engA RNA: a 106-nucleotide RNA sequence. The family's consensus secondary structure is taken from published work.

Nucleotides: 106
Stems, first nucleotide, its partner, number of pairs: 001021005026044006045067008079101001081099005
Number, partner (000 for none) and nucleotide at each position: 001021c002020c003019c004018c005017u006000g007000a008000a009000u010000a011000g012000c013000a014000a015000a016000g017005a018004g019003g020002g021001g022000a023000c024000a025000c026044u027043c028042u029041c030040g031039c032000c033000a034000g035000a036000g037000a038000g039031g040030c041029g042028a043027g044026g045067g046066c047065c048064g049063g050062a051061g052060u053000g054000a055000g056000g057000u058000c059000a060052g061051c062050u063049u064048c065047g066046g067045c068000a069000a070000a071000u072000u073000a074000u075000c076000a077000a078000c079101u080000c081099g082098g083097a084096u085095g086000c087000a088000c089000a090000g091000a092000c093000c094000a095085c096084a097083u098082c099081c100000a101079a102000g103000a104000c105000c106000u